[Rfam]
This 113-nucleotide sequence from Venatorbacter sp. C2-1 belongs to the Rfam family "Guanidine-I riboswitch aptamer". Rfam links the family to the GO term regulation of gene expression. Lineage of the source: Bacteria > Pseudomonadota > Gammaproteobacteria > Oceanospirillales > Venatoribacter.

Nucleotides: 113
Stems, first nucleotide, its partner, number of pairs: 007063003011059002015053002020050002022047001023044008064086006071079001088108001090111001094106003
Number, partner (000 for none) and nucleotide at each position: 001000u002000u003000a004000a005000u006000a007063g008062g009061u010000c011059g012058c013000u014000a015053g016052g017000g018000u019000u020050c021049c022047g023044g024043u025042u026041u027040g028039u029038g030037u031000u032000g033000u034000u035000a036000a037030a038029c039028a040027u041026g042025a043024a044023c045000g046000a047022c048000u049021g050020g051000u052016c053015c054000g055000a056000g057000a058012g059011c060000a061009a062008c063007c064086g065085a066084c067083c068082u069081c070000a071079g072000c073000c074000g075000c076000g077000u078000g079071c080000g081069g082068g083067g084066g085065u086064u087000a088108c089000a090111c091000g092000g093000a094106g095105g096104g097000a098000u099000a100000a101000a102000a103000g104096c105095c106094c107000g108088g109000g110000a111090g112000a113000u